[Rfam]
RNA: TPP riboswitch aptamer (THI element)
RNA sequence: CAAAAGCACCAGGGGUGCUUGAACCAGGAUAGCCUGCGAAAAGGCGGGCUAUCCGGGACCAGGCUGAGAAAGUCCCUUUGAACCUGAACAGGGUAAUGCCUGCGCAGGGAGUGUGCAGUUUUUUUUUU
Numbered sequence: 001c002a003a004a005a006g007c008a009c010c011a012g013g014g015g016u017g018c019u020u021g022a023a024c025c026a027g028g029a030u031a032g033c034c035u036g037c038g039a040a041a042a043g044g045c046g047g048g049c050u051a052u053c054c055g056g057g058a059c060c061a062g063g064c065u066g067a068g069a070a071a072g073u074c075c076c077u078u079u080g081a082a083c084c085u086g087a088a089c090a091g092g093g094u095a096a097u098g099c100c101u102g103c104g105c106a107g108g109g110a111g112u113g114u115g116c117a118g119u120u121u122u123u124u125u126u127u128u
Stems, first nucleotide, its partner, number of pairs: 006116004011077004016071001017064005083108004089102004